This 87-nucleotide sequence belongs to the Rfam family "freshwater-2 RNA". The family's consensus secondary structure is taken from published work. The sequence is in the family's curated seed alignment. By type it is a cis-regulatory element.

[Rfam]
RNA sequence: UUCUACCAAUGUAGAAGACUUAUGCGGAUAUACCAACCGCGUACCUAGGAGAACUAGGAUUGGACUCCUUUAAAGGAGAAAAAAAUG
Numbered sequence: 001u002u003c004u005a006c007c008a009a010u011g012u013a014g015a016a017g018a019c020u021u022a023u024g025c026g027g028a029u030a031u032a033c034c035a036a037c038c039g040c041g042u043a044c045c046u047a048g049g050a051g052a053a054c055u056a057g058g059a060u061u062g063g064a065c066u067c068c069u070u071u072a073a074a075g076g077a078g079a080a081a082a083a084a085a086u087g
Base pairs, nucleotide, nucleotide: 001016002015003014004013005012006011021043022042023041024040025039026038027037044058045057046056047055